[Rfam]
RNA sequence: GGAUCGACGAUGAUGUUCACAUAAGCAUUCCUUGGAAAAGCUGAUCCAAAUGAGUGAGAAGCCAUCAUCAUUGCGCUCAUAGAACUGAGGUCC
Numbered sequence: 001g002g003a004u005c006g007a008c009g010a011u012g013a014u015g016u017u018c019a020c021a022u023a024a025g026c027a028u029u030c031c032u033u034g035g036a037a038a039a040g041c042u043g044a045u046c047c048a049a050a051u052g053a054g055u056g057a058g059a060a061g062c063c064a065u066c067a068u069c070a071u072u073g074c075g076c077u078c079a080u081a082g083a084a085c086u087g088a089g090g091u092c093c
Stems, first nucleotide, its partner, number of pairs: 001093005026056005032048001034046001
Small nucleolar RNA SNORD116: a 93-nucleotide RNA sequence from Chrysochloris asiatica. The family's consensus secondary structure was predicted with PFOLD. The match comes from Rfam's covariance-model search (79 bits).